[Rfam]
RNA: RybB RNA
Organism: Proteus myxofaciens
RNA sequence: ACUGCUUUUCUUUGAUGUCCCCAAAUAUUGAGGAUCCCGAUAGUUUCAACCCUUUUGGUGAAAUAACUGUCGGGUUUUUUAUU
Numbered sequence: 001a002c003u004g005c006u007u008u009u010c011u012u013u014g015a016u017g018u019c020c021c022c023a024a025a026u027a028u029u030g031a032g033g034a035u036c037c038c039g040a041u042a043g044u045u046u047c048a049a050c051c052c053u054u055u056u057g058g059u060g061a062a063a064u065a066a067c068u069g070u071c072g073g074g075u076u077u078u079u080u081a082u083u
Stems, first nucleotide, its partner, number of pairs: 034076001036074010